[Rfam]
RNA sequence: UUACGUGCUCCGGGGUCGGUGUAAUUCCGAACCGGCGGUGAUAGUCCGCGACCCGCGUCCUGCCUCACGGCAGGCCGGUUGACCUGGUGGAAUUCCGGGACCGACGGUGAAAGUCCGGAUGGGAGGAAGCACGUAC
Numbered sequence: 001u002u003a004c005g006u007g008c009u010c011c012g013g014g015g016u017c018g019g020u021g022u023a024a025u026u027c028c029g030a031a032c033c034g035g036c037g038g039u040g041a042u043a044g045u046c047c048g049c050g051a052c053c054c055g056c057g058u059c060c061u062g063c064c065u066c067a068c069g070g071c072a073g074g075c076c077g078g079u080u081g082a083c084c085u086g087g088u089g090g091a092a093u094u095c096c097g098g099g100a101c102c103g104a105c106g107g108u109g110a111a112a113g114u115c116c117g118g119a120u121g122g123g124a125g126g127a128a129g130c131a132c133g134u135a136c
Stems, first nucleotide, its partner, number of pairs: 003134007010125001017029003031114002033103002035049004044101002053078002083099005105117003
RNA: FMN riboswitch aptamer (RFN element)
Organism: Myceligenerans xiligouense